The family of this 109-nucleotide sequence from Kaistia hirudinis is "EcpR1". The match comes from Rfam's covariance-model search (91 bits). Rfam's curators write: Perviously named SmelC291, SmrC10, or Sra33. According to its overproduction phenotype it was renamed Elongated Cell Phenotype RNA1. Induced by stress,EcpR1 negatively regulates cell cycle master regulatory genes dnaA and gcrA at post-transcriptional level by base pairing between its strongly conserved GC-rich loop and the target mRNAs. Rfam classes the family as a small RNA.
RNA sequence: CUACCCUGCGGAGUGCUCAGGUCCGCCGCAUCUCCUGGGUCCGUAGGGUCGGCCCGGCCGGGGCGGCGAGAGUGGCCUCCUCUAUGACCCGCACCGGCCGGGCCACUUC
Numbered sequence: 001c002u003a004c005c006c007u008g009c010g011g012a013g014u015g016c017u018c019a020g021g022u023c024c025g026c027c028g029c030a031u032c033u034c035c036u037g038g039g040u041c042c043g044u045a046g047g048g049u050c051g052g053c054c055c056g057g058c059c060g061g062g063g064c065g066g067c068g069a070g071a072g073u074g075g076c077c078u079c080c081u082c083u084a085u086g087a088c089c090c091g092c093a094c095c096g097g098c099c100g101g102g103c104c105a106c107u108u109c
Stems, first nucleotide, its partner, number of pairs: 003049008016039006051104011